[Rfam]
Nucleotides: 065
Base pairs, nucleotide, nucleotide: 001065002064003063004062006061007059008058009057011055012054013053014052015051016050019047021045022044023043024042025041026040027039
Number, partner (000 for none) and nucleotide at each position: 001065c002064c003063c004062u005000g006061g007059u008058g009057c010000a011055u012054u013053g014052u015051a016050g017000u018000u019047g020000c021045a022044u023043u024042g025041c026040a027039u028000u029000u030000g031000u032000u033000c034000u035000g036000a037000a038000u039027a040026u041025g042024c043023a044022g045021u046000g047019c048000a049000u050016c051015u052014g053013c054012a055011a056000a057009g058008c059007a060000a061006c062004a063003g064002g065001g
The family of this 65-nucleotide RNA sequence from Patiria miniata is "mir-33 microRNA precursor family". Rfam's curators put it in the seed alignment. Pairs were carried over by alignment from the consensus structure, which was predicted with PFOLD. The family has 73 seed sequences and 1,467 matches in Rfam 15.1. A reference for the family is Li et al. (2009), "Direct sequencing and expression analysis of a large number of miRNAs in Aedes aegypti and a multi-species survey of novel mosquito miRNAs", BMC Genomics.